[Rfam]
RNA: tRNA
Organism: Aphanomyces astaci
RNA sequence: GUCCCCGUGGCCUAAUGGAUAAGGCGUCGCCCUCCGAAGGCGGAGACUGCGGGUUCGAGUCCCGCCGGGGACU
Numbered sequence: 001g002u003c004c005c006c007g008u009g010g011c012c013u014a015a016u017g018g019a020u021a022a023g024g025c026g027u028c029g030c031c032c033u034c035c036g037a038a039g040g041c042g043g044a045g046a047c048u049g050c051g052g053g054u055u056c057g058a059g060u061c062c063c064g065c066c067g068g069g070g071a072c073u
Base pairs, nucleotide, nucleotide: 001072002071003070004069005068006067007066010025011024012023013022027043028042029041030040031039049065050064051063052062053061
Dot-bracket structure: (((((((..((((........)))).(((((.......))))).....(((((.......)))))))))))).